The family of this 124-nucleotide RNA from Campylorhamphus procurvoides is "Small nucleolar RNA SNORD22". For this family Rfam cites "Requirement for intron-encoded U22 small nucleolar RNA in 18S ribosomal RNA maturation" (Tycowski et al., Science, 1994). The base pairs follow the family's consensus structure, which was predicted with PFOLD. Rfam 15.1 lists 1,081 matches to the family in 414 species.

[Rfam]
RNA sequence: CCCCUAUGAGGAAAUCUUCAUGUCUGACCCCCCUGGUGGGUCCAGGACCUGCCAAGGUGGAACCCACUGGUGCUCCCAGGGGGGACACGAGGACAGCAAGUCCUGAGGGGACUGUCUGAGGGGG
Numbered sequence: 001c002c003c004c005u006a007u008g009a010g011g012a013a014a015u016c017u018u019c020a021u022g023u024c025u026g027a028c029c030c031c032c033c034u035g036g037u038g039g040g041u042c043c044a045g046g047a048c049c050u051g052c053c054a055a056g057g058u059g060g061a062a063c064c065c066a067c068u069g070g071u072g073c074u075c076c077c078a079g080g081g082g083g084g085a086c087a088c089g090a091g092g093a094c095a096g097c098a099a100g101u102c103c104u105g106a107g108g109g110g111a112c113u114g115u116c117u118g119a120g121g122g123g124g
Base pairs, nucleotide, nucleotide: 001123002122003121004120